Rfam assigns this 269-nucleotide sequence from Sphaerosporella brunnea to the family "Fungal signal recognition particle RNA". NCBI's taxonomy places the organism under Eukaryota, Fungi, Ascomycota, Pezizales, Sphaerosporella. The literature on the family includes a 2000 paper in Science by Batey et al., "Crystal structure of the ribonucleoprotein core of the signal recognition particle". Its Rfam clan is "SRP clan". Its family is annotated with signal recognition particle, endoplasmic reticulum targeting, SRP-dependent cotranslational protein targeting to membrane, signal sequence recognition and signal recognition particle, plasma membrane targeting in the Gene Ontology.

RNA sequence: UAGCUGUAAUGGCUCAAGUUGAAGAAGCUCUUCCAUUUUACGAUGGUUUCUUUCCAUACACCAUAGUUCGCUGGUGGUGUCCGGUUCGAAUCCUGUGGCCGUCAUGUCAGCCAGCCUGUGCAGGCGGCUUGGCUGUGGGCGCUAAGACAACAAGUUACCCUUCAGUCCGGAAACGGCACAGAGGACUUGUUCCACAGGAUGGCGGUACCGGAUCGCACCACCGCGGCUUUGGGAAGGGAUCACCGUUAGGUUGGGCAACUUCAAUUUUU
Numbered sequence: 001u002a003g004c005u006g007u008a009a010u011g012g013c014u015c016a017a018g019u020u021g022a023a024g025a026a027g028c029u030c031u032u033c034c035a036u037u038u039u040a041c042g043a044u045g046g047u048u049u050c051u052u053u054c055c056a057u058a059c060a061c062c063a064u065a066g067u068u069c070g071c072u073g074g075u076g077g078u079g080u081c082c083g084g085u086u087c088g089a090a091u092c093c094u095g096u097g098g099c100c101g102u103c104a105u106g107u108c109a110g111c112c113a114g115c116c117u118g119u120g121c122a123g124g125c126g127g128c129u130u131g132g133c134u135g136u137g138g139g140c141g142c143u144a145a146g147a148c149a150a151c152a153a154g155u156u157a158c159c160c161u162u163c164a165g166u167c168c169g170g171a172a173a174c175g176g177c178a179c180a181g182a183g184g185a186c187u188u189g190u191u192c193c194a195c196a197g198g199a200u201g202g203c204g205g206u207a208c209c210g211g212a213u214c215g216c217a218c219c220a221c222c223g224c225g226g227c228u229u230u231g232g233g234a235a236g237g238g239a240u241c242a243c244c245g246u247u248a249g250g251u252u253g254g255g256c257a258a259c260u261u262c263a264a265u266u267u268u269u
Base pairs, nucleotide, nucleotide: 002014003013004012016267017266018265019264020263021262022261023260032255033254034253036249037248040246041245042244044242045241046240047239048238049237050236051235052234053233071223073222074221075220076219077218078217079216080215081211082210083209084208085207086205087204088203090200091199092198093197094196095195096194097193098192102138103137104136105135106133107132108131113129114128115127116126118125119124142146149191150190151189152188153187154186159184160183161182162181167176168175169174